[Rfam]
RNA sequence: UAACCAGUUUCACGAGGAACUGCUGAACGAUCAGAAGUCAGCUUCGGCCAUAGUACCAUGUGGUCCUAGGACAUAUGGGAAGGGC
Numbered sequence: 001u002a003a004c005c006a007g008u009u010u011c012a013c014g015a016g017g018a019a020c021u022g023c024u025g026a027a028c029g030a031u032c033a034g035a036a037g038u039c040a041g042c043u044u045c046g047g048c049c050a051u052a053g054u055a056c057c058a059u060g061u062g063g064u065c066c067u068a069g070g071a072c073a074u075a076u077g078g079g080a081a082g083g084g085c
Base pairs, nucleotide, nucleotide: 001025002024005022006021007020008019009018010017011016047085048084049083056078057077058076059075060074061073
Dot-bracket structure: ((..(((((((....))))))).)).....................(((......((((((...........))))))....)))

Shown here is an 85-nucleotide RNA sequence from Salibacterium qingdaonense, a member of the family "Group II catalytic intron D1-D4-1". Taxonomically the source falls in Salibacterium (Bacteria, Bacillati, Bacilli, Caryophanales). The match comes from Rfam's covariance-model search (51 bits). The pairing is the family consensus, mapped onto this sequence. Rfam describes the family as follows. Group II introns are found in rRNA, tRNA and mRNA of organelles in fungi, plants and protists, and also in mRNA in bacteria.